[Rfam]
RNA sequence: AGAUAUGCUUGUAUAGUAGCGAGCAGGAUAAUCAAAAAAAAUACUAGAUAAGA
Numbered sequence: 001a002g003a004u005a006u007g008c009u010u011g012u013a014u015a016g017u018a019g020c021g022a023g024c025a026g027g028a029u030a031a032u033c034a035a036a037a038a039a040a041a042u043a044c045u046a047g048a049u050a051a052g053a
Stems, first nucleotide, its partner, number of pairs: 006025006014046004
A member of the RNA family "6A RNA", 53 nucleotides long. The family's RNA type in Rfam is small RNA. The base pairs follow the family's consensus structure, which is taken from published work.